[Rfam]
RNA sequence: GGCGGCUGGGAAGGCAAGAUGUCGGCAUAGCUGAUUAUGUCGGUAUACGGCUGUGUCACAUCGAGCCAGCUCAAACCGCC
Numbered sequence: 001g002g003c004g005g006c007u008g009g010g011a012a013g014g015c016a017a018g019a020u021g022u023c024g025g026c027a028u029a030g031c032u033g034a035u036u037a038u039g040u041c042g043g044u045a046u047a048c049g050g051c052u053g054u055g056u057c058a059c060a061u062c063g064a065g066c067c068a069g070c071u072c073a074a075a076c077c078g079c080c
Stems, first nucleotide, its partner, number of pairs: 007073004013067003018062004024057008
Record summary:
Rfam assigns this 80-nucleotide RNA sequence from Eumeta japonica to the family "mir-31 microRNA precursor family". Rfam links the family to the GO terms RISC complex and gene silencing by miRNA. It scores 58 bits against the family's covariance model.